The record is a 60-nucleotide RNA from Dicaeum eximium, which matches "Small nucleolar RNA SNORD63" in Rfam.
Rfam 15.1 lists 795 matches to the family in 549 species.
A reference for the family is Galardi et al. (2002), "Purified box C/D snoRNPs are able to reproduce site-specific 2'-O-methylation of target RNA in vitro", Mol Cell Biol.
snoRNA U63 is found in both humans and mice.
Rfam classes the family as a C/D-box small nucleolar RNA.
Taxonomically the source falls in Dicaeum (Eukaryota, Vertebrata, Gnathostomata, Dinosauria).
Gene Ontology terms of the family: RNA processing and nucleolus.
[Rfam]
RNA sequence: GUGCCAUGAUGUCAAUUGUCAACACAUCAUUCUGAAGAAGUCCUUCUAGGACUGAGCACC
Numbered sequence: 001g002u003g004c005c006a007u008g009a010u011g012u013c014a015a016u017u018g019u020c021a022a023c024a025c026a027u028c029a030u031u032c033u034g035a036a037g038a039a040g041u042c043c044u045u046c047u048a049g050g051a052c053u054g055a056g057c058a059c060c
Stems, first nucleotide, its partner, number of pairs: 001059004